Rfam assigns this 265-nucleotide RNA from Desulfonispora thiosulfatigenes to the family "Bacterial large signal recognition particle RNA". For this family Rfam cites "Prediction of signal recognition particle RNA genes" (Regalia et al., Nucleic Acids Res, 2002). Lineage of the source: Bacteria > Bacillota > Clostridia > Desulfonispora > Desulfonispora thiosulfatigenes. The family's consensus secondary structure is taken from published work.
RNA sequence: UCGUGCUAGAUGGGGAGGUAGCGGUGCCUUGUAACCCGCAAUCCGCUAUAGCGGGGUCGAUGUCUAACUGAGGACUAAUCUUGUGGAGUCUGCCCUAGGCAAGUGGUGUUGACGAUUGGGUCCCGCGCAACGCAAACUUAUGAACCCCGUCAGAUCCGGAAGGAAGCAGCGGUAAGUAAGACCUUGCGUGUGCCGUGGGUCAGCCUGAUCCGAGCAAACUACCUAGGUAACGUCCGGAAGAUUAGCUUCGAAGUUAGGUGCACGA
Numbered sequence: 001u002c003g004u005g006c007u008a009g010a011u012g013g014g015g016a017g018g019u020a021g022c023g024g025u026g027c028c029u030u031g032u033a034a035c036c037c038g039c040a041a042u043c044c045g046c047u048a049u050a051g052c053g054g055g056g057u058c059g060a061u062g063u064c065u066a067a068c069u070g071a072g073g074a075c076u077a078a079u080c081u082u083g084u085g086g087a088g089u090c091u092g093c094c095c096u097a098g099g100c101a102a103g104u105g106g107u108g109u110u111g112a113c114g115a116u117u118g119g120g121u122c123c124c125g126c127g128c129a130a131c132g133c134a135a136a137c138u139u140a141u142g143a144a145c146c147c148c149g150u151c152a153g154a155u156c157c158g159g160a161a162g163g164a165a166g167c168a169g170c171g172g173u174a175a176g177u178a179a180g181a182c183c184u185u186g187c188g189u190g191u192g193c194c195g196u197g198g199g200u201c202a203g204c205c206u207g208a209u210c211c212g213a214g215c216a217a218a219c220u221a222c223c224u225a226g227g228u229a230a231c232g233u234c235c236g237g238a239a240g241a242u243u244a245g246c247u248u249c250g251a252a253g254u255u256a257g258g259u260g261c262a263c264g265a
Stems, first nucleotide, its partner, number of pairs: 001265006009058003012030004017025001019023001035055005063258007072249003076245001078242005084236004091229002095226005103219002106215002114210008122199006128190002131188005137180005147172004155164003